RNA: 6S / SsrS RNA
Organism: Nitrospinota bacterium
RNA sequence: GUCUCCCUGUUGUGCUUGAGUAAAAACUUAAUUUCUUGAGCCAACACUUCGUAAAAGGGGUUGAUGAAUCGGCUGCGGUGUGCAUGCCUGCUCCGGUAGGAAGCCUAAAGCAGUUCACGGAUACCCCACCUGUCCUUGACAGGUUCAAAAAAUAGUUUUUGCACGGCAUUACGGGGGGACU
Numbered sequence: 001g002u003c004u005c006c007c008u009g010u011u012g013u014g015c016u017u018g019a020g021u022a023a024a025a026a027c028u029u030a031a032u033u034u035c036u037u038g039a040g041c042c043a044a045c046a047c048u049u050c051g052u053a054a055a056a057g058g059g060g061u062u063g064a065u066g067a068a069u070c071g072g073c074u075g076c077g078g079u080g081u082g083c084a085u086g087c088c089u090g091c092u093c094c095g096g097u098a099g100g101a102a103g104c105c106u107a108a109a110g111c112a113g114u115u116c117a118c119g120g121a122u123a124c125c126c127c128a129c130c131u132g133u134c135c136u137u138g139a140c141a142g143g144u145u146c147a148a149a150a151a152a153u154a155g156u157u158u159u160u161g162c163a164c165g166g167c168a169u170u171a172c173g174g175g176g177g178g179a180c181u
Base pairs, nucleotide, nucleotide: 002179003178004177005176006175007174008173009172010171012169013168014167015166017165018164032152033151034150037147038146039145040144041143042142058127059126060125062123063122065120069117071115072114073113074112075111076110082104083103087100088099089098090097091096